[Rfam]
RNA sequence: CUGAGAGACGAGCGAUCGCCUCUGAUCGCGUGGCAGAAAUCAGCCGAGGGCAUAGUAGGUUCGCCCGUGAACUGAAGGCC
Numbered sequence: 001c002u003g004a005g006a007g008a009c010g011a012g013c014g015a016u017c018g019c020c021u022c023u024g025a026u027c028g029c030g031u032g033g034c035a036g037a038a039a040u041c042a043g044c045c046g047a048g049g050g051c052a053u054a055g056u057a058g059g060u061u062c063g064c065c066c067g068u069g070a071a072c073u074g075a076a077g078g079c080c
Stems, first nucleotide, its partner, number of pairs: 004023004009018003040047002049080003058073006
Dot-bracket structure: ...((((.(((....))).))))................((....)).(((......((((((....))))))....)))
RNA: Group II catalytic intron D1-D4-1